DUF805b RNA: a 35-nucleotide RNA sequence.
RNA sequence: ACGGAGAAUGCCGAAAAUCCGACAAAGAGUAGGCA
Numbered sequence: 001a002c003g004g005a006g007a008a009u010g011c012c013g014a015a016a017a018u019c020c021g022a023c024a025a026a027g028a029g030u031a032g033g034c035a
Base pairs, nucleotide, nucleotide: 002021003020004019005018010034011033012032